[Rfam]
Nucleotides: 078
Base pairs, nucleotide, nucleotide: 010025011024012023013022016069017068018067020065021064050059051058052057
Number, partner (000 for none) and nucleotide at each position: 001000a002000u003000c004000g005000g006000c007000c008000c009000c010025g011024g012023c013022g014000a015000u016069g017068g018067a019000u020065c021064c022013c023012g024011c025010c026000g027000g028000g029000g030000c031000c032000g033000a034000u035000c036000a037000g038000u039000c040000g041000g042000u043000c044000c045000g046000a047000a048000c049000c050059g051058c052057c053000g054000c055000u056000c057052g058051g059050c060000u061000g062000a063000u064021g065020g066000u067018u068017c069016c070000u071000g072000c073000a074000c075000c076000g077000u078000g
Fluoride riboswitch aptamer (crcB RNA motif): a 78-nucleotide sequence from Cellulomonas composti. Lineage of the source: Bacteria > Bacillati > Actinomycetota > Cellulomonadaceae > Cellulomonas.